Notes:
SAM riboswitch aptamer (S box leader): a 104-nucleotide sequence from Rossellomorea marisflavi.
[Rfam]
RNA sequence: UUCUUAUCACGAGAGGUGGAGGGAUUUGGCCCUUUGAUACCUCGGCAGCGGGCUCACUUGAGCACUGUGCCAACUCCAACAGGCGGAUGCCUGAGAGAUGAGAA
Numbered sequence: 001u002u003c004u005u006a007u008c009a010c011g012a013g014a015g016g017u018g019g020a021g022g023g024a025u026u027u028g029g030c031c032c033u034u035u036g037a038u039a040c041c042u043c044g045g046c047a048g049c050g051g052g053c054u055c056a057c058u059u060g061a062g063c064a065c066u067g068u069g070c071c072a073a074c075u076c077c078a079a080c081a082g083g084c085g086g087a088u089g090c091c092u093g094a095g096a097g098a099u100g101a102g103a104a
Stems, first nucleotide, its partner, number of pairs: 001104008013043005021032003026079004044071004049067002052063004075096001080093005

Pairs were carried over by alignment from the consensus structure, which is taken from published work.